A member of the RNA family "mir-927 microRNA precursor family" from Tribolium castaneum, 68 nucleotides long. The source organism's lineage runs through Eukaryota, Metazoa, Dicondylia, Tenebrionoidea and Tribolium. The literature on the family includes a 2007 paper in Genome Res by Ruby et al., "Evolution, biogenesis, expression, and target predictions of a substantially expanded set of Drosophila microRNAs". Rfam 15.1 lists 174 matches to the family in 143 species.
RNA sequence: UUUCGGUUUAGAAUUCCUACGCUUUACCGUGUGAAAGGCUGGCAAAGCGUUUGGAUUCUGAAUCGAAC
Numbered sequence: 001u002u003u004c005g006g007u008u009u010a011g012a013a014u015u016c017c018u019a020c021g022c023u024u025u026a027c028c029g030u031g032u033g034a035a036a037g038g039c040u041g042g043c044a045a046a047g048c049g050u051u052u053g054g055a056u057u058c059u060g061a062a063u064c065g066a067a068c
Base pairs, nucleotide, nucleotide: 001067002066003065005064006063007062008061009060010059011058012057014055015054016053019050020049021048022047023046024045025044027042028041